[Rfam]
Nucleotides: 081
Stems, first nucleotide, its partner, number of pairs: 004043003009038005017031002020029002051078004056074002061072003
Number, partner (000 for none) and nucleotide at each position: 001000u002000u003000u004043u005042g006041c007000a008000u009038u010037g011036g012035g013034u014000u015000u016000u017031c018030g019000g020029g021028c022000a023000a024000u025000g026000a027000u028021g029020c030018c031017g032000u033000u034013g035012c036011c037010c038009a039000c040000c041006g042005c043004a044000u045000g046000c047000a048000a049000c050000a051078g052077g053076u054075g055000c056074g057073u058000u059000u060000u061072a062071c063070c064000g065000a066000g067000a068000c069000c070063g071062g072061u073057g074056c075054c076053g077052c078051c079000a080000u081000a

antisense RNA of dnaA mRNA: an 81-nucleotide sequence from Pantoea agglomerans. The family's consensus secondary structure was predicted with RNAfold.